[Rfam]
RNA sequence: CCCGGGCCCGGGCUCUUUCCACUAGGCCACACUGCUUCUGUGGCCUAGAGAAGCAGAGAAGCAGAGAAGCAGCGUGGCUCAGUGGAAAGAGCACGGGCUUUGGA
Numbered sequence: 001c002c003c004g005g006g007c008c009c010g011g012g013c014u015c016u017u018u019c020c021a022c023u024a025g026g027c028c029a030c031a032c033u034g035c036u037u038c039u040g041u042g043g044c045c046u047a048g049a050g051a052a053g054c055a056g057a058g059a060a061g062c063a064g065a066g067a068a069g070c071a072g073c074g075u076g077g078c079u080c081a082g083u084g085g086a087a088a089g090a091g092c093a094c095g096g097g098c099u100u101u102g103g104a
Stems, first nucleotide, its partner, number of pairs: 002103002005099006012092008022082002025079006
A member of the RNA family "mir-130 microRNA precursor family" from Ornithorhynchus anatinus, 104 nucleotides long.
The organism belongs to Ornithorhynchus, within Eukaryota.